[Rfam]
RNA sequence: AAUUAAACAUGAAUAAAUACUCGUAUAUCUUUGAGAAUAUGGCUCAAAAGUUUCUACCGGGCGACCGUAAAUUGCCCGACUACGAGUGAAACAAUCCACCAU
Numbered sequence: 001a002a003u004u005a006a007a008c009a010u011g012a013a014u015a016a017a018u019a020c021u022c023g024u025a026u027a028u029c030u031u032u033g034a035g036a037a038u039a040u041g042g043c044u045c046a047a048a049a050g051u052u053u054c055u056a057c058c059g060g061g062c063g064a065c066c067g068u069a070a071a072u073u074g075c076c077c078g079a080c081u082a083c084g085a086g087u088g089a090a091a092c093a094a095u096c097c098a099c100c101a102u
Stems, first nucleotide, its partner, number of pairs: 018088008030048006058078007